[Rfam]
RNA sequence: AACCCCCAGCUAGGCUGGGGGUUCCGUAAAGCUUUCAGCUAUAAGUCGGUUAUAAAAACCCCUUUCGAUUUGUUAAAACACCUUGCGGUCUGGCAACUGCAAAAGUUAAACAAAAAUUGAAAG
Numbered sequence: 001a002a003c004c005c006c007c008a009g010c011u012a013g014g015c016u017g018g019g020g021g022u023u024c025c026g027u028a029a030a031g032c033u034u035u036c037a038g039c040u041a042u043a044a045g046u047c048g049g050u051u052a053u054a055a056a057a058a059c060c061c062c063u064u065u066c067g068a069u070u071u072g073u074u075a076a077a078a079c080a081c082c083u084u085g086c087g088g089u090c091u092g093g094c095a096a097c098u099g100c101a102a103a104a105g106u107u108a109a110a111c112a113a114a115a116a117u118u119g120a121a122a123g
Base pairs, nucleotide, nucleotide: 001023002022003021004020005019006018007017008016009015010014028042030040031039032038033037062123063122064121065120066119067118068117069116070115071112072111073110074109077107078106079105083102084101085100086099087098088097089096
Dot-bracket structure: ((((((((((...))))))))))....(.((((...)))).)...................(((((((((((((..(((...(((((((......)))))))..))).))))..)))))))))
Description: STnc490 Hfq binding RNA: a 123-nucleotide RNA from Affinibrenneria salicis. The family has 76 seed sequences and 285 matches in Rfam 15.1. It is annotated as a small RNA. Taxonomically the source falls in Affinibrenneria (Bacteria, Pseudomonadati, Pseudomonadota, Pectobacteriaceae).